[Rfam]
Nucleotides: 153
Stems, first nucleotide, its partner, number of pairs: 034055001037052006061093003064089004069082001101110003126145008
Number, partner (000 for none) and nucleotide at each position: 001000u002000u003000g004000a005000c006000g007000u008000g009000a010000a011000a012000a013000u014000g015000a016000g017000a018000a019000u020000u021000g022000u023000u024000a025000u026000u027000a028000u029000u030000a031000c032000c033000u034055c035000a036000c037052c038051u039050g040049g041048c042047c043000g044000c045000g046000a047042g048041g049040c050039c051038a052037g053000c054000c055034g056000a057000u058000a059000a060000g061093c062092u063091g064089a065088g066087a067086g068000a069082u070000u071000c072000a073000a074000a075000c076000g077000c078000a079000g080000u081000c082069g083000g084000a085000u086067u087066u088065c089064u090000u091063c092062a093061g094000a095000u096000u097000a098000u099000c100000u101110c102109c103108u104000c105000a106000u107000c108103a109102g110101g111000c112000u113000a114000a115000u116000c117000a118000c119000g120000g121000u122000u123000u124000u125000c126145g127144a128143c129142c130141c131140g132139g133138c134000u135000c136000u137000u138133g139132c140131c141130g142129g143128g144127u145126c146000u147000u148000u149000u150000u151000u152000u153000g
Rfam assigns this 153-nucleotide RNA sequence from Pseudomonas jinjuensis to the family "PrrF RNA". From the family's description: PrrF RNA is a small RNA involved in iron homeostasis and is found exclusively in Pseudomonas species. The literature on the family includes a 2004 paper in Proc Natl Acad Sci U S A by Wilderman et al., "Identification of tandem duplicate regulatory small RNAs in Pseudomonas aeruginosa involved in iron homeostasis". The family's consensus secondary structure is taken from published work.